Shown here is a 132-nucleotide RNA sequence from Pseudomonas fulva, a member of the family "rmf RNA". Taxonomically the source falls in Pseudomonas fulva (Bacteria, Pseudomonadota, Pseudomonadales, Pseudomonas). Pairs were carried over by alignment from the consensus structure, which is taken from published work.
[Rfam]
RNA sequence: UUCGAUAGAAAUCUACCCAGGCCGUCGUUGCAACGACGAUGGCACAUGGAGGCUCGCGACGCCGGCAGCGGACUCCAACGGCAGACCUUCUGCCUGACCUUCUUAAGGUCAACGGGACAUAAAACAGUCAAC
Number, nucleotide and partner (000 for none) at each position: 001u000002u000003c000004g000005a000006u000007a000008g000009a000010a000011a000012u000013c000014u000015a000016c000017c000018c000019a000020g000021g043022c042023c041024g040025u039026c038027g037028u036029u035030g000031c000032a000033a000034c000035g029036a028037c027038g026039a025040u024041g023042g022043c021044a000045c000046a000047u000048g000049g000050a000051g074052g073053c000054u071055c070056g069057c068058g000059a000060c000061g000062c000063c000064g000065g000066c000067a000068g057069c056070g055071g054072a000073c052074u051075c000076c000077a000078a000079c000080g094081g093082c092083a091084g090085a089086c000087c000088u000089u085090c084091u083092g082093c081094c080095u000096g110097a109098c108099c107100u106101u105102c000103u000104u000105a101106a100107g099108g098109u097110c096111a000112a000113c000114g000115g000116g000117a000118c000119a000120u000121a000122a000123a000124a000125c000126a000127g000128u000129c000130a000131a000132c000